This 114-nucleotide sequence from Schistosoma mansoni belongs to the Rfam family "Potassium channel RNA editing signal". This family represents a group of sequences related to the human potassium channel Kv1.1 hairpin element which directs the efficient modification of an adenosine to inosine by an adenosine deaminase acting on RNA (ADAR). The ADAR modification causes an isoleucine/valine recoding event which lies in the ion-conducting pore of the potassium channel. It is thought that this editing event targets the process of fast inactivation and allows a more rapid recovery from inactivation at negative potentials. The family has 85 seed sequences and 14,095 matches in Rfam 15.1. The organism belongs to Schistosoma, within Eukaryota. It is one of the family's seed sequences. The family's consensus secondary structure is taken from published work.
RNA sequence: GUUGGUUAUGGAGAUAUGCGACCGGUUACUGUAUGGGGUAAAUUAAUUGGUUCAUUAUGUGCUAUCGCUGGUGUACUAACUAUUGCACUUCCUGUUCCUGUGAUUGUAUCAAAC
Numbered sequence: 001g002u003u004g005g006u007u008a009u010g011g012a013g014a015u016a017u018g019c020g021a022c023c024g025g026u027u028a029c030u031g032u033a034u035g036g037g038g039u040a041a042a043u044u045a046a047u048u049g050g051u052u053c054a055u056u057a058u059g060u061g062c063u064a065u066c067g068c069u070g071g072u073g074u075a076c077u078a079a080c081u082a083u084u085g086c087a088c089u090u091c092c093u094g095u096u097c098c099u100g101u102g103a104u105u106g107u108a109u110c111a112a113a114c
Base pairs, nucleotide, nucleotide: 001114002113005110007108008107009106010105011104014101015100016099018097021095022094037077038076039075040074049063050062051061